The record is a 57-nucleotide RNA from Nocardioides sp., which matches "msiK RNA" in Rfam. The organism belongs to Nocardioides, within Bacteria.

RNA sequence: GAUGGUCCUGCCUUUACCACGGAUCGUCCGGCACGUACCUGCCGGUGAAGGGAGUCG
Numbered sequence: 001g002a003u004g005g006u007c008c009u010g011c012c013u014u015u016a017c018c019a020c021g022g023a024u025c026g027u028c029c030g031g032c033a034c035g036u037a038c039c040u041g042c043c044g045g046u047g048a049a050g051g052g053a054g055u056c057g
Base pairs, nucleotide, nucleotide: 011051012050013049014048015047016046028045029044030043031042032041033040